Rfam assigns this 105-nucleotide RNA sequence from Sneathiella litorea to the family "rpsB sRNA". NCBI's taxonomy places the organism under Bacteria, Pseudomonadota, Sneathiellales, Sneathiellaceae, Sneathiella. Rfam 15.1 lists 245 matches to the family in 245 species. Pairs were carried over by alignment from the consensus structure, which is taken from published work. A search with the family's covariance model found it, with a score of 44 bits.
[Rfam]
RNA sequence: CACACGUGAGCUUUGGGUAAGGCUGUGUUGGUCUUUCCCUUCCGGUGUUCUAAGGAUGAUCCUUUGGACCGCUGCUCACGGAGGUUCAACCGGAAAAGGAGAUUG
Dot-bracket structure: (.(.(((((((...((.............(......)))........(((...............))).....)))))))).)......................